[Rfam]
RNA sequence: AAUCACGAGUUCCGAUCACUUAGGCCCUGGCCGAUCGGACGGCAACCCCAACGCCAUUGUGCGGGGUGCCCCAGGUGAAGAUUCGACGGACCUGAAAGACAGGUUCGUAAGCAAUGGCG
Numbered sequence: 001a002a003u004c005a006c007g008a009g010u011u012c013c014g015a016u017c018a019c020u021u022a023g024g025c026c027c028u029g030g031c032c033g034a035u036c037g038g039a040c041g042g043c044a045a046c047c048c049c050a051a052c053g054c055c056a057u058u059g060u061g062c063g064g065g066g067u068g069c070c071c072c073a074g075g076u077g078a079a080g081a082u083u084c085g086a087c088g089g090a091c092c093u094g095a096a097a098g099a100c101a102g103g104u105u106c107g108u109a110a111g112c113a114a115u116g117g118c119g
Stems, first nucleotide, its partner, number of pairs: 001083004009040001011039006023032002041070003046066003051060001086108009

SAM (S-adenosyl methionine) riboswitch aptamer: a 119-nucleotide RNA sequence from Glutamicibacter uratoxydans. Rfam 15.1 lists 2,360 matches to the family in 1,305 species. The match comes from Rfam's covariance-model search (75 bits). Its Rfam clan is "SAM clan". Rfam's curators write: SAM-IV is a mRNA element that regulates gene expression via direct sensing of S-adenosylmethionine (SAM or AdoMet). Gene Ontology terms of the family: S-adenosylmethionine metabolic process and regulation of gene expression.